[Rfam]
RNA: tRNA
RNA sequence: GGCAACGUAGCAAAGUGGUUAAUGCGAUUGACUCGAAUUUCUGAAACAGAAAUUAAGUAAUCAAUUCCCUUCGGGGGCGUAGGUUCGAAUCCUGCCGUUGUCG
Numbered sequence: 001g002g003c004a005a006c007g008u009a010g011c012a013a014a015g016u017g018g019u020u021a022a023u024g025c026g027a028u029u030g031a032c033u034c035g036a037a038u039u040u041c042u043g044a045a046a047c048a049g050a051a052a053u054u055a056a057g058u059a060a061u062c063a064a065u066u067c068c069c070u071u072c073g074g075g076g077g078c079g080u081a082g083g084u085u086c087g088a089a090u091c092c093u094g095c096c097g098u099u100g101u102c103g
Base pairs, nucleotide, nucleotide: 001102002101003100004099005098006097007096010025011024012023027065028064029063030062031061079095080094081093082092083091